[Rfam]
Rfam assigns this 118-nucleotide sequence from Leptobrachium leishanense to the family "Small nucleolar RNA SNORD89". The family's consensus secondary structure was predicted with RNAalifold. Rfam links the family to the GO terms RNA processing and nucleolus. The match comes from Rfam's covariance-model search (52 bits). Rfam classes the family as a C/D-box small nucleolar RNA.
RNA sequence: GCUGAGGAAUGAUGACAUAAAAGGCCGAAUUCCAGCGCUGCCUCCGAGCAGUUUACUCUCUGGGUGAGGCGGCGCGAUGAAAAAAACUCCUUGAAGCGAAAUCAAAACUGACCUCAGU
Numbered sequence: 001g002c003u004g005a006g007g008a009a010u011g012a013u014g015a016c017a018u019a020a021a022a023g024g025c026c027g028a029a030u031u032c033c034a035g036c037g038c039u040g041c042c043u044c045c046g047a048g049c050a051g052u053u054u055a056c057u058c059u060c061u062g063g064g065u066g067a068g069g070c071g072g073c074g075c076g077a078u079g080a081a082a083a084a085a086a087c088u089c090c091u092u093g094a095a096g097c098g099a100a101a102u103c104a105a106a107a108c109u110g111a112c113c114u115c116a117g118u
Stems, first nucleotide, its partner, number of pairs: 001118007014108001024033001035103001037102001041098001042096001045093004051075002056068003076089002